Nucleotides: 113
Stems, first nucleotide, its partner, number of pairs: 005109006016028003030093002032083002034047004042081002050059003063079005085096003
Number, partner (000 for none) and nucleotide at each position: 001000u002000a003000g004000a005109u006108c007107c008106u009105u010104c011000a012000g013000g014000g015000u016028a017027g018026g019000u020000g021000a022000g023000a024000u025000u026018c027017c028016u029000a030093a031092c032083c033082g034047g035046c036045g037044g038000u039000a040000u041000a042081g043080c044037c045036c046035g047034c048000g049000a050059g051058c052057c053000g054000a055000a056000a057052g058051g059050u060000a061000g062000a063079u064078c065077u066076g067075g068000u069000u070000g071000a072000a073000u074000u075067c076066c077065a078064g079063a080043g081042c082033c083032g084000a085096c086095a087094g088000u089000a090000a091000a092031g093030u094087c095086u096085g097000g098000a099000u100000g101000a102000g103000a104010g105009a106008a107007g108006g109005a110000g111000a112000g113000u